[Rfam]
RNA sequence: CAUUGUAAAUGAUGAGAAAAAAUAAAAAUUACAGUUAUCCCUGGCUUACAUUUAUGGAUGCUGAAAAACUCAAUCUGAUACAAUG
Numbered sequence: 001c002a003u004u005g006u007a008a009a010u011g012a013u014g015a016g017a018a019a020a021a022a023u024a025a026a027a028a029u030u031a032c033a034g035u036u037a038u039c040c041c042u043g044g045c046u047u048a049c050a051u052u053u054a055u056g057g058a059u060g061c062u063g064a065a066a067a068a069c070u071c072a073a074u075c076u077g078a079u080a081c082a083a084u085g
Stems, first nucleotide, its partner, number of pairs: 001085007
Dot-bracket structure: (((((((.......................................................................)))))))
The family of this 85-nucleotide RNA from Carex littledalei is "Small nucleolar RNA R38". Rfam classes the family as a C/D-box small nucleolar RNA. A reference for the family is Bachellerie et al. (1995), "Antisense snoRNAs: a family of nucleolar RNAs with long complementarities to rRNA", Trends Biochem Sci. The base pairs follow the family's consensus structure, which was predicted with PFOLD.